[Rfam]
RNA: tRNA
RNA sequence: GCCAACGUAGCUCAACCGGUAGAGCGGCUCAUUCGUAAUGAGCAGGUUGGGGGUUCAAGUCCCUUCGUUGGCU
Numbered sequence: 001g002c003c004a005a006c007g008u009a010g011c012u013c014a015a016c017c018g019g020u021a022g023a024g025c026g027g028c029u030c031a032u033u034c035g036u037a038a039u040g041a042g043c044a045g046g047u048u049g050g051g052g053g054u055u056c057a058a059g060u061c062c063c064u065u066c067g068u069u070g071g072c073u
Stems, first nucleotide, its partner, number of pairs: 001072007010025004027043005049065005